[Rfam]
The family of this 88-nucleotide RNA from Zostera marina is "Small nucleolar RNA R44/J54/Z268 family". Rfam links the family to the GO terms nucleolus and RNA processing. Pairs were carried over by alignment from the consensus structure, which was predicted with PFOLD. By type it is a C/D-box small nucleolar RNA. Taxonomically the source falls in Zostera (Eukaryota, Streptophytina, Magnoliopsida, Alismatales).
RNA sequence: UUUGCAGAUGAUGAUAAAAAAGACAGGGACUCUGAACCCGACAAAUCGGGCUGAUUACUUCGUCUAAUUGGGAAAUUUCUGAUGCAUU
Numbered sequence: 001u002u003u004g005c006a007g008a009u010g011a012u013g014a015u016a017a018a019a020a021a022g023a024c025a026g027g028g029a030c031u032c033u034g035a036a037c038c039c040g041a042c043a044a045a046u047c048g049g050g051c052u053g054a055u056u057a058c059u060u061c062g063u064c065u066a067a068u069u070g071g072g073a074a075a076u077u078u079c080u081g082a083u084g085c086a087u088u
Stems, first nucleotide, its partner, number of pairs: 003086004

A search with the family's covariance model found it, with a score of 57 bits.